[Rfam]
RNA sequence: CUGCAGCCAGUUAAACUGACUGAGUUCCUUUCCUCAUUGGGGCCCAGUGUGCAGUGGCUACAAACAGCAGCUGCCUUGGUAGUGUACUCAGCCUGUUUCUUACAUGGUUUGCUCUAAGGGACCUUGGAGACAGGC
Numbered sequence: 001c002u003g004c005a006g007c008c009a010g011u012u013a014a015a016c017u018g019a020c021u022g023a024g025u026u027c028c029u030u031u032c033c034u035c036a037u038u039g040g041g042g043c044c045c046a047g048u049g050u051g052c053a054g055u056g057g058c059u060a061c062a063a064a065c066a067g068c069a070g071c072u073g074c075c076u077u078g079g080u081a082g083u084g085u086a087c088u089c090a091g092c093c094u095g096u097u098u099c100u101u102a103c104a105u106g107g108u109u110u111g112c113u114c115u116a117a118g119g120g121a122c123c124u125u126g127g128a129g130a131c132a133g134g135c
Base pairs, nucleotide, nucleotide: 002053003052004051005050019048020047021046022045025042026041027040028039078123079122080121089111090110091109093107094106

Small nucleolar RNA SNORA70: a 135-nucleotide RNA from Cebus imitator. Rfam classes the family as an H/ACA-box small nucleolar RNA. Rfam describes the family as follows. snoRNA U70 seems to be exclusive to mammals and is a member of the H/ACA class of snoRNA which contain H (ANANNA) and ACA box motifs. H/ACA box snoRNAs are involved in the conversion of uridines to pseudouridines (5-ribosyluracil) a constituent of structural RNAs (transfer, ribosomal, small nuclear, and small nucleolar). The source organism's lineage runs through Eukaryota, Craniata, Sarcopterygii, Tetrapoda and Cebus. It scores 132 bits against the family's covariance model. Pairs were carried over by alignment from the consensus structure, which was predicted with PFOLD. For this family Rfam cites "Pseudouridine in RNA: what, where, how, and why" (Charette and Gray, IUBMB Life, 2000).